[Rfam]
RNA sequence: AUACUGGUUGAUCCUGCCAGAGGCUACUGCUAUCGGAGUCCGACUAAGCCAUGCGAGUUGUGGGUGCCCUCUUCGGAGGAGUAACCCGGCGGACGGCUCAGUAACACGUGGAUAACCUGCCCUUGGGACCGGGAUAACCCCGGGAAACUGGGGAUAAUACCGGAUAGGCCACCGAUGCUGGAAUGCGCGGUGGCUCAAAGCUACGGCGCCCAAGGAUGGGUCUGCGGCCGAUUAGGCUGUUGCCGGGGUAACGUCCCGGCAAACCUGUGAUCGGUACGGGUUGUGAGAGCAAGAGCCCGGAGAUGGAUUCUGAGACACGAAUCCAGGCCCUACGGGGCGCAGCAGGCGCGAAACCUUUACAAUGCACGCAAGUGUGAUAAGGGGACUCCGAGUGUCGGCACCUGUGUCGACUGUCCGGAUACCUAAAAAGUAUCCGAUAGCAAGGGCCGGGUAAGACCGGUGCCAGCCGCCGCGGUAACACCGGCGGCUCGAGUGGUAGCCACUAUUAUUG
Numbered sequence: 001a002u003a004c005u006g007g008u009u010g011a012u013c014c015u016g017c018c019a020g021a022g023g024c025u026a027c028u029g030c031u032a033u034c035g036g037a038g039u040c041c042g043a044c045u046a047a048g049c050c051a052u053g054c055g056a057g058u059u060g061u062g063g064g065u066g067c068c069c070u071c072u073u074c075g076g077a078g079g080a081g082u083a084a085c086c087c088g089g090c091g092g093a094c095g096g097c098u099c100a101g102u103a104a105c106a107c108g109u110g111g112a113u114a115a116c117c118u119g120c121c122c123u124u125g126g127g128a129c130c131g132g133g134a135u136a137a138c139c140c141c142g143g144g145a146a147a148c149u150g151g152g153g154a155u156a157a158u159a160c161c162g163g164a165u166a167g168g169c170c171a172c173c174g175a176u177g178c179u180g181g182a183a184u185g186c187g188c189g190g191u192g193g194c195u196c197a198a199a200g201c202u203a204c205g206g207c208g209c210c211c212a213a214g215g216a217u218g219g220g221u222c223u224g225c226g227g228c229c230g231a232u233u234a235g236g237c238u239g240u241u242g243c244c245g246g247g248g249u250a251a252c253g254u255c256c257c258g259g260c261a262a263a264c265c266u267g268u269g270a271u272c273g274g275u276a277c278g279g280g281u282u283g284u285g286a287g288a289g290c291a292a293g294a295g296c297c298c299g300g301a302g303a304u305g306g307a308u309u310c311u312g313a314g315a316c317a318c319g320a321a322u323c324c325a326g327g328c329c330c331u332a333c334g335g336g337g338c339g340c341a342g343c344a345g346g347c348g349c350g351a352a353a354c355c356u357u358u359a360c361a362a363u364g365c366a367c368g369c370a371a372g373u374g375u376g377a378u379a380a381g382g383g384g385a386c387u388c389c390g391a392g393u394g395u396c397g398g399c400a401c402c403u404g405u406g407u408c409g410a411c412u413g414u415c416c417g418g419a420u421a422c423c424u425a426a427a428a429a430g431u432a433u434c435c436g437a438u439a440g441c442a443a444g445g446g447c448c449g450g451g452u453a454a455g456a457c458c459g460g461u462g463c464c465a466g467c468c469g470c471c472g473c474g475g476u477a478a479c480a481c482c483g484g485c486g487g488c489u490c491g492a493g494u495g496g497u498a499g500c501c502a503c504u505a506u507u508a509u510u511g
Base pairs, nucleotide, nucleotide: 004020005019006018007017008016022501023500024499025498026497027496028495029494030493031492033391034390035389036388037387038386039385040384041383042349048347049346050345052344053343054342057090058089059088062087063086064085068079069078070077071076097302098301099300107226108225109224110223111222112221113220116219117218121215122214123213124212125211126210127209129163130162131161132160138153139152140151141150142149143148168194169193170192171191172190173189174188177186178185200207201206228274229273230272235265236264240262241261242260243259244258245257246256247255277299278298279297280296281292282291283290284289304325305324306323307322308321309320327338328337329336330335355381357380358379359378363376364375365374366373367372394411395410396409397408398407399406400405415440416436417435418434419433420432421431422430444490445489446488447487448486449485457484458483459482460481466473467472

Overview:
A member of the RNA family "Archaeal small subunit ribosomal RNA" from Candidatus Syntropharchaeum butanivorans, 511 nucleotides of a longer RNA. Lineage of the source: Archaea > Methanobacteriati > Halobacteriota > Candidatus Syntropharchaeales > Candidatus Syntropharchaeum. The base pairs follow the family's consensus structure, which is taken from published work. The family is grouped with related families in Rfam's "SSU clan". On this family, see Yusupov et al., Science 2001: "Crystal structure of the ribosome at 5.5 A resolution". Gene Ontology terms of the family: ribosome and structural constituent of ribosome. It scores 1564 bits against the family's covariance model.